[Rfam]
RNA: Group II catalytic intron D1-D4-1
RNA sequence: UGGUCUCAUGUGCCAUAGUAGUAACGAACUGUGAGAAGUCAGCAGAAGCCGUAGUAGGCAUAGCUCUGAAACGUGCUUUGCCAAAGGGC
Numbered sequence: 001u002g003g004u005c006u007c008a009u010g011u012g013c014c015a016u017a018g019u020a021g022u023a024a025c026g027a028a029c030u031g032u033g034a035g036a037a038g039u040c041a042g043c044a045g046a047a048g049c050c051g052u053a054g055u056a057g058g059c060a061u062a063g064c065u066c067u068g069a070a071a072c073g074u075g076c077u078u079u080g081c082c083a084a085a086g087g088g089c
Base pairs, nucleotide, nucleotide: 001026002025004023006021008019009018039046040045048089049088050087057082058081059080060079062077063076064075